[Rfam]
RNA sequence: UUCUUAUCGAGAGUGGUGGAGGGACUGGCCCUAUGAAACCCGGCAACCAAUAUAUUAUAUAUAUAAGGUGCUAAAUCCUGCAGUAAGUAACUGAUAGAUAAGGG
Numbered sequence: 001u002u003c004u005u006a007u008c009g010a011g012a013g014u015g016g017u018g019g020a021g022g023g024a025c026u027g028g029c030c031c032u033a034u035g036a037a038a039c040c041c042g043g044c045a046a047c048c049a050a051u052a053u054a055u056u057a058u059a060u061a062u063a064u065a066a067g068g069u070g071c072u073a074a075a076u077c078c079u080g081c082a083g084u085a086a087g088u089a090a091c092u093g094a095u096a097g098a099u100a101a102g103g104g
Stems, first nucleotide, its partner, number of pairs: 001104008013041001015040003021031003025080001027078002042072004047068002050064004076096001081093004